This 48-nucleotide RNA sequence from Tardiphaga sp. belongs to the Rfam family "Guanidine-II riboswitch aptamer (mini-ykkC)". A search with the family's covariance model found it, with a score of 33 bits. Rfam describes the family as follows. Simpler in structure and has fewer highly conserved nucleotide positions than the ykkC-yxkD leader. Despite this each of its two stem-loop structures directly bind free guanidine. Therefore, mini-ykkC RNA motif represents a distinct class of guanidine-sensing RNAs. Its crystal structure was also determined. Lineage of the source: Bacteria > Pseudomonadota > Hyphomicrobiales > Nitrobacteraceae > Tardiphaga.
[Rfam]
RNA sequence: CUGUGAGGACGACCUCCAGUCCAUUCACUCUCCGCAGGGACGGCCCUG
Numbered sequence: 001c002u003g004u005g006a007g008g009a010c011g012a013c014c015u016c017c018a019g020u021c022c023a024u025u026c027a028c029u030c031u032c033c034g035c036a037g038g039g040a041c042g043g044c045c046c047u048g
Base pairs, nucleotide, nucleotide: 001019002018003017005016006015007014008013035048036047037046038045039044
Dot-bracket structure: (((.((((....)))))))...............(((((....)))))